RNA: Mason-Pfizer monkey virus packaging signal
RNA sequence: UGGCUACCAACAUGGGGCUCAAGUGCAGGGGAUUCAGUGAAGAACACUGUUCAGAGAGGCUGGCAUAAAGUGAAGUACAGUUAGUUAAGAGGAAGAGUAACACAGGAGCCUGCUGUGUCUUCUUAACUUUGGUAAGUAGAACAGCAAUUAUGGGACAAGCAAUUACCAAGCAUGAAAUGCUUAUUAGUGGAUUAAGACAUGUUUUUAAGGCAUAAGGUGUAAAGGUUAAAAUUAAACAGUCAUGUGAAUUAUUUGACUAUAUUAAAGAUGUUUGUCCCU
Numbered sequence: 001u002g003g004c005u006a007c008c009a010a011c012a013u014g015g016g017g018c019u020c021a022a023g024u025g026c027a028g029g030g031g032a033u034u035c036a037g038u039g040a041a042g043a044a045c046a047c048u049g050u051u052c053a054g055a056g057a058g059g060c061u062g063g064c065a066u067a068a069a070g071u072g073a074a075g076u077a078c079a080g081u082u083a084g085u086u087a088a089g090a091g092g093a094a095g096a097g098u099a100a101c102a103c104a105g106g107a108g109c110c111u112g113c114u115g116u117g118u119c120u121u122c123u124u125a126a127c128u129u130u131g132g133u134a135a136g137u138a139g140a141a142c143a144g145c146a147a148u149u150a151u152g153g154g155a156c157a158a159g160c161a162a163u164u165a166c167c168a169a170g171c172a173u174g175a176a177a178u179g180c181u182u183a184u185u186a187g188u189g190g191a192u193u194a195a196g197a198c199a200u201g202u203u204u205u206u207a208a209g210g211c212a213u214a215a216g217g218u219g220u221a222a223a224g225g226u227u228a229a230a231a232u233u234a235a236a237c238a239g240u241c242a243u244g245u246g247a248a249u250u251a252u253u254u255g256a257c258u259a260u261a262u263u264a265a266a267g268a269u270g271u272u273u274g275u276c277c278c279u
Stems, first nucleotide, its partner, number of pairs: 007029002013025002035049004085132003090128002096123001097121001101117005137158001139156001142154001145152002165204001167201002213255004219249002224240001226238001264279001267276003